[Rfam]
RNA sequence: CCCGGUGCCAUGACGGCCUGCCUGCAAACCAGCGUGCUGGUGGGGCAGACCCGAGGAUGCGUG
Numbered sequence: 001c002c003c004g005g006u007g008c009c010a011u012g013a014c015g016g017c018c019u020g021c022c023u024g025c026a027a028a029c030c031a032g033c034g035u036g037c038u039g040g041u042g043g044g045g046c047a048g049a050c051c052c053g054a055g056g057a058u059g060c061g062u063g
Base pairs, nucleotide, nucleotide: 001063003061004060015051016050018048019047020046021045022044023043030039031038032037
RNA: Selenocysteine insertion sequence 1